[Rfam]
RNA sequence: GAAGCCCGCCAGACCGCCGCUGGUGCGAUCUGGGAAACCAGGCACUGGAGGAACGUCCGGACUGCACAGGGCAGCGUAGCAGCUAACGGCUGUCCACCGCGAGGUGAGGAUCAGAGCAACAGAGACGAGUCCCGGGGGAGUGCCUGCGAAGGCAAACCACCGGGGGUGAAACGGGCAAUCUCUACGCGCAGCAACACCAAGUAGGCACACGUUGACGGGGCCCCCGGAGUGUGCGGGUAGGUGGCAUCGAGCCGGGUGGGCGACCCCCGGCCCAGAGUAAUGGCGGUCACGCCGCGGGCAACCGCGGUGCACAGAAUCCGGCUUAUCGGCGGGCUUCACAC
Numbered sequence: 001g002a003a004g005c006c007c008g009c010c011a012g013a014c015c016g017c018c019g020c021u022g023g024u025g026c027g028a029u030c031u032g033g034g035a036a037a038c039c040a041g042g043c044a045c046u047g048g049a050g051g052a053a054c055g056u057c058c059g060g061a062c063u064g065c066a067c068a069g070g071g072c073a074g075c076g077u078a079g080c081a082g083c084u085a086a087c088g089g090c091u092g093u094c095c096a097c098c099g100c101g102a103g104g105u106g107a108g109g110a111u112c113a114g115a116g117c118a119a120c121a122g123a124g125a126c127g128a129g130u131c132c133c134g135g136g137g138g139a140g141u142g143c144c145u146g147c148g149a150a151g152g153c154a155a156a157c158c159a160c161c162g163g164g165g166g167u168g169a170a171a172c173g174g175g176c177a178a179u180c181u182c183u184a185c186g187c188g189c190a191g192c193a194a195c196a197c198c199a200a201g202u203a204g205g206c207a208c209a210c211g212u213u214g215a216c217g218g219g220g221c222c223c224c225c226g227g228a229g230u231g232u233g234c235g236g237g238u239a240g241g242u243g244g245c246a247u248c249g250a251g252c253c254g255g256g257u258g259g260g261c262g263a264c265c266c267c268c269g270g271c272c273c274a275g276a277g278u279a280a281u282g283g284c285g286g287u288c289a290c291g292c293c294g295c296g297g298g299c300a301a302c303c304g305c306g307g308u309g310c311a312c313a314g315a316a317u318c319c320g321g322c323u324u325a326u327c328g329g330c331g332g333g334c335u336u337c338a339c340a341c
Stems, first nucleotide, its partner, number of pairs: 001337010011326001012288007020048007053324001055322001057321005062191004069223004074187005079093005094108001095106004109182002114180002116176002131165002195243004205234006216226003251271006258265002
The family of this 341-nucleotide sequence from Acidovorax sp. MR-S7 is "Bacterial RNase P class A". The family's consensus secondary structure is taken from published work. The family's RNA type in Rfam is ribozyme.